[Rfam]
RNA sequence: AAGCAGGAUUUAUACCACAAUAUAGCUGUUCAGUGCCGUGUUGUCAUCCCCCCUGCUCAAAAUAAAGUGGUUUCUUAACUAUACCUGUCUGCUAUACUCCUGUAGCAGCCAGGAAUGCUUGGUCUCAUACAU
Numbered sequence: 001a002a003g004c005a006g007g008a009u010u011u012a013u014a015c016c017a018c019a020a021u022a023u024a025g026c027u028g029u030u031c032a033g034u035g036c037c038g039u040g041u042u043g044u045c046a047u048c049c050c051c052c053c054u055g056c057u058c059a060a061a062a063u064a065a066a067g068u069g070g071u072u073u074c075u076u077a078a079c080u081a082u083a084c085c086u087g088u089c090u091g092c093u094a095u096a097c098u099c100c101u102g103u104a105g106c107a108g109c110c111a112g113g114a115a116u117g118c119u120u121g122g123u124c125u126c127a128u129a130c131a132u
Stems, first nucleotide, its partner, number of pairs: 003056005017044007025036002084113004089108004
RNA: Small nucleolar RNA SNORA63